[Rfam]
Nucleotides: 122
Stems, first nucleotide, its partner, number of pairs: 003053002007050001009048001012045002015043006023035004065114002068111004073106001074104001076102002081097001083095004
Number, partner (000 for none) and nucleotide at each position: 001000a002000c003053u004052g005000a006000c007050g008000c009048u010000a011000g012045a013044g014000u015043c016042a017041c018040a019039u020038c021000c022000u023035g024034a025033c026032a027000g028000c029000u030000c031000u032026u033025g034024u035023c036000c037000u038020g039019g040018u041017g042016u043015g044013c045012u046000a047000g048009a049000c050007c051000c052004c053003a054000c055000a056000a057000a058000a059000a060000a061000u062000c063000u064000g065114c066113u067000c068111g069110u070109c071108u072000g073106g074104u075000a076102c077101u078000g079000g080000c081097g082000a083095g084094g085093g086092c087000g088000a089000u090000c091000a092086g093085c094084c095083c096000c097081c098000a099000g100000a101077a102076g103000c104074a105000c106073c107000c108071a109070g110069g111068u112000c113066a114065g115000a116000a117000a118000c119000a120000u121000g122000c
A member of the RNA family "Small nucleolar RNA SNORA3/SNORA45 family" from Capra hircus, 122 nucleotides long. Rfam classes the family as an H/ACA-box small nucleolar RNA. It scores 52 bits against the family's covariance model. NCBI's taxonomy places the organism under Eukaryota, Bilateria, Deuterostomia, Boreoeutheria, Capra. The members of this family belong to the H/ACA class of snoRNAs which are thought to guide the sites of modification of uridines to pseudouridines. This family includes mouse snoMBI-28 and human homologues ACA3 (SNORA3) and ACA3-2 (SNORA45). Both ACA3 and ACA3-2 share the same host gene. Rfam links the family to the GO terms RNA processing and nucleolus. On this family, see Huttenhofer et al., EMBO J 2001: "RNomics: an experimental approach that identifies 201 candidates for novel, small, non-messenger RNAs in mouse".